RNA: Guanidine-II riboswitch aptamer (mini-ykkC)
Organism: Phoenix dactylifera
RNA sequence: CAUCCGAGACGACUCGGAAACUCAGCUUUUUACUUGCGGGGACGACUCCG
Numbered sequence: 001c002a003u004c005c006g007a008g009a010c011g012a013c014u015c016g017g018a019a020a021c022u023c024a025g026c027u028u029u030u031u032a033c034u035u036g037c038g039g040g041g042a043c044g045a046c047u048c049c050g
Stems, first nucleotide, its partner, number of pairs: 003018006037050005